The family of this 142-nucleotide RNA sequence from Lathyrus oleraceus is "small nucleolar RNA snoR137". Its family is annotated with nucleolus and RNA processing in the Gene Ontology. Lineage of the source: Eukaryota > Embryophyta > Gunneridae > Pentapetalae > Lathyrus. A search with the family's covariance model found it, with a score of 101 bits. The literature on the family includes a 2009 paper in Nucleic Acids Res by Chen and Wu, "Mining small RNA sequencing data: a new approach to identify small nucleolar RNAs in Arabidopsis".
[Rfam]
RNA sequence: GUUGCUUCACAAUGGUGAAACCUCUUCUUUCAAAUAAGAGGAUUUCAAGUUUCCCGAAGCAUAAAUAAAACCUAAAAAACCAGUCUUAAACAACCUAGUGUAAUUUUUAACUACACUACGUUACCUGUCUACUGGUACAUUU
Numbered sequence: 001g002u003u004g005c006u007u008c009a010c011a012a013u014g015g016u017g018a019a020a021c022c023u024c025u026u027c028u029u030u031c032a033a034a035u036a037a038g039a040g041g042a043u044u045u046c047a048a049g050u051u052u053c054c055c056g057a058a059g060c061a062u063a064a065a066u067a068a069a070a071c072c073u074a075a076a077a078a079a080c081c082a083g084u085c086u087u088a089a090a091c092a093a094c095c096u097a098g099u100g101u102a103a104u105u106u107u108u109a110a111c112u113a114c115a116c117u118a119c120g121u122u123a124c125c126u127g128u129c130u131a132c133u134g135g136u137a138c139a140u141u142u
Stems, first nucleotide, its partner, number of pairs: 003061006016047005021041005079136006092122003096118005
Dot-bracket structure: ..((((((.......((((((((((...........))))).)))))........)))))).................((((((.......(((.(((((.............))))).)))........))))))......